[Rfam]
Nucleotides: 044
Stems, first nucleotide, its partner, number of pairs: 001044005006038006013032001015030005
Number, partner (000 for none) and nucleotide at each position: 001044u002043g003042c004041u005040u006038g007037c008036a009035u010034a011033c012000u013032g014000c015030u016029u017028u018027g019026g020000c021000c022000a023000g024000g025000a026019c027018c028017a029016a030015a031000a032013c033011g034010u035009a036008u037007g038006c039000g040005a041004a042003g043002u044001g